[Rfam]
RNA sequence: GGGUGUUGUCUGCAUGGAGCAGUGACAGGUUGAGCGAUGGUCGGGCCACCACG
Numbered sequence: 001g002g003g004u005g006u007u008g009u010c011u012g013c014a015u016g017g018a019g020c021a022g023u024g025a026c027a028g029g030u031u032g033a034g035c036g037a038u039g040g041u042c043g044g045g046c047c048a049c050c051a052c053g
Stems, first nucleotide, its partner, number of pairs: 005026004010022003035053002038051004
Record summary
This 53-nucleotide sequence from Bradyrhizobium sp. DFCI-1 belongs to the Rfam family "nhaA-I RNA". The source organism's lineage runs through Bacteria, Pseudomonadota, Hyphomicrobiales, Nitrobacteraceae and Bradyrhizobium. Rfam classes the family as a riboswitch. Pairs were carried over by alignment from the consensus structure, which is taken from published work.